[Rfam]
RNA sequence: ACUCACAGUGACGGCCGCCCAGGGCUCCCCGACCCACGCAGGCCUCUGCCGGGGGUGACGCCAGUCCUGGUGUCAGUGAUU
Numbered sequence: 001a002c003u004c005a006c007a008g009u010g011a012c013g014g015c016c017g018c019c020c021a022g023g024g025c026u027c028c029c030c031g032a033c034c035c036a037c038g039c040a041g042g043c044c045u046c047u048g049c050c051g052g053g054g055g056u057g058a059c060g061c062c063a064g065u066c067c068u069g070g071u072g073u074c075a076g077u078g079a080u081u
Base pairs, nucleotide, nucleotide: 001081003079004078005077006076010074011073012072019070020069021068022067023066024065025064026063028060032056033055034054035053039051041050042049043048
Shown here is an 81-nucleotide RNA sequence from Oryctolagus cuniculus, a member of the family "Small nucleolar RNA SNORD86". The family has 6 seed sequences and 274 matches in Rfam 15.1. The organism belongs to Oryctolagus, within Eukaryota. Rfam's curators write: U86 belongs to the C/D family of snoRNAs. It is the human orthologue of Xenopus laevis U86 and has no identified RNA target. The family's consensus secondary structure was predicted with RNAalifold. Rfam classes the family as a C/D-box small nucleolar RNA.